[Rfam]
RNA sequence: CCGUGCUAGGUGGGGAGGUAGCGGUUCCCUAUUCUCGAAAUCCGCUUAUGCGAGACUGAAUACUUUGCCUAGGGUGUGUACUUGUGAAGUCUGCCCAAAGCACGAGGUGUUUGAAGAUUUCGGUCCUAUGCAAUAUGAACCCAUGAAUCAUGUCAGGUCCUGACGGAAGCAGCAUUAAGUGGAUUAUCAUAUGUGCCGUAGGGUAGCCGAGAUUUAGCUGUCGACUUUGGUAACGUUCAUGAUACACAUUCAAAGCAAAGUUGCGCGG
Numbered sequence: 001c002c003g004u005g006c007u008a009g010g011u012g013g014g015g016a017g018g019u020a021g022c023g024g025u026u027c028c029c030u031a032u033u034c035u036c037g038a039a040a041u042c043c044g045c046u047u048a049u050g051c052g053a054g055a056c057u058g059a060a061u062a063c064u065u066u067g068c069c070u071a072g073g074g075u076g077u078g079u080a081c082u083u084g085u086g087a088a089g090u091c092u093g094c095c096c097a098a099a100g101c102a103c104g105a106g107g108u109g110u111u112u113g114a115a116g117a118u119u120u121c122g123g124u125c126c127u128a129u130g131c132a133a134u135a136u137g138a139a140c141c142c143a144u145g146a147a148u149c150a151u152g153u154c155a156g157g158u159c160c161u162g163a164c165g166g167a168a169g170c171a172g173c174a175u176u177a178a179g180u181g182g183a184u185u186a187u188c189a190u191a192u193g194u195g196c197c198g199u200a201g202g203g204u205a206g207c208c209g210a211g212a213u214u215u216a217g218c219u220g221u222c223g224a225c226u227u228u229g230g231u232a233a234c235g236u237u238c239a240u241g242a243u244a245c246a247c248a249u250u251c252a253a254a255g256c257a258a259a260g261u262u263g264c265g266c267g268g
Base pairs, nucleotide, nucleotide: 001268002267003266004265005264006263009057010056011055012030013029014028015027016026017025019023034054035053036052037051039049063260064259065258066257067256068255072251073250074249075248076247078245079244080243082242083241084240085239086238087237088236092232093231096229097228098227099226100225104222105221106219107218108217116214117213118212119211120210121209122208123207124206125202126201127200128199129198130197131193132192134191135190136189137188138187139184141182142181143180144179150175151174152173153172158167159166160165